[Rfam]
RNA sequence: UCGUGGGUGACUGCGAAUCUGAAGGAAGUCGGCGGCAAAUAUGGGAGCCCACGAAGAGGAACUGUAUAUAAGGCGGGAUAGUGUGGAUGAUGUUGCAAUACAAACAGAAGUCCAAUACUGCAAGGAUACUAUUACGUAGAUACAGGGGCUACAUCCAUAGAAAGUAGAUUGU
Numbered sequence: 001u002c003g004u005g006g007g008u009g010a011c012u013g014c015g016a017a018u019c020u021g022a023a024g025g026a027a028g029u030c031g032g033c034g035g036c037a038a039a040u041a042u043g044g045g046a047g048c049c050c051a052c053g054a055a056g057a058g059g060a061a062c063u064g065u066a067u068a069u070a071a072g073g074c075g076g077g078a079u080a081g082u083g084u085g086g087a088u089g090a091u092g093u094u095g096c097a098a099u100a101c102a103a104a105c106a107g108a109a110g111u112c113c114a115a116u117a118c119u120g121c122a123a124g125g126a127u128a129c130u131a132u133u134a135c136g137u138a139g140a141u142a143c144a145g146g147g148g149c150u151a152c153a154u155c156c157a158u159a160g161a162a163a164g165u166a167g168a169u170u171g172u
Stems, first nucleotide, its partner, number of pairs: 001016006028172002031169001035165002040159006046150005062145006073137003077133007085113004091106004
RNA: Group II catalytic intron D1-D4-3